[Rfam]
RNA sequence: CUUUUUUAAAUUUGUAAGUCGCUCUGGAUAAGAGCGUCUGCUAAAGGACUUAAA
Numbered sequence: 001c002u003u004u005u006u007u008a009a010a011u012u013u014g015u016a017a018g019u020c021g022c023u024c025u026g027g028a029u030a031a032g033a034g035c036g037u038c039u040g041c042u043a044a045a046g047g048a049c050u051u052a053a054a
Stems, first nucleotide, its partner, number of pairs: 013043001014041003020036006
Rfam assigns this 54-nucleotide sequence from Salvelinus namaycush to the family "UnaL2 LINE 3' element". The eel long interspersed element (LINE) UnaL2 and its partner short interspersed element (SINE) share a conserved 3' tail containing a stem-loop that is critical for their retrotransposition. Presumably, the first step of retrotransposition is the recognition of their 3' tails by UnaL2-encoded reverse transcriptase. The solution structure of a 17-nucleotide RNA derived from the 3' tail of UnaL2 was determined by NMR. The family's RNA type in Rfam is cis-regulatory element. The source organism's lineage runs through Eukaryota, Deuterostomia, Neopterygii, Protacanthopterygii and Salvelinus. The family has 30 seed sequences and 493,311 matches in Rfam 15.1.